RNA: radC RNA
RNA sequence: AAUCCACCGAAAUGCCUGCCGCAGCAAGCGGCGACAUGCCCAGGUAGCCACGAUCUUCAAGGCUACGGCGCGGCCCCGGCCGUGUUGAUCCCACCCGUUCGCACCGCAUCCCUUGCCGAACAGCCACCUUGCCGGUGGCGGAUGC
Number, nucleotide and partner (000 for none) at each position: 001a000002a000003u000004c000005c000006a000007c000008c000009g000010a000011a000012a037013u036014g035015c033016c000017u000018g032019c031020c030021g029022c028023a000024g000025c000026a000027a000028g022029c021030g020031g019032c018033g015034a000035c014036a013037u012038g000039c000040c000041c000042a000043g000044g066045u065046a064047g063048c062049c061050a000051c000052g090053a089054u088055c087056u000057u000058c000059a000060a000061g049062g048063c047064u046065a045066c044067g086068g085069c084070g083071c082072g081073g080074c000075c000076c000077c000078g000079g000080c073081c072082g071083u070084g069085u068086u067087g055088a054089u053090c052091c000092c000093a000094c000095c000096c000097g000098u000099u000100c000101g000102c000103a000104c000105c000106g000107c000108a000109u000110c000111c000112c000113u000114u000115g000116c000117c144118g143119a000120a000121c000122a000123g139124c138125c137126a136127c135128c134129u000130u000131g000132c000133c000134g128135g127136u126137g125138g124139c123140g000141g000142a000143u118144g117145c000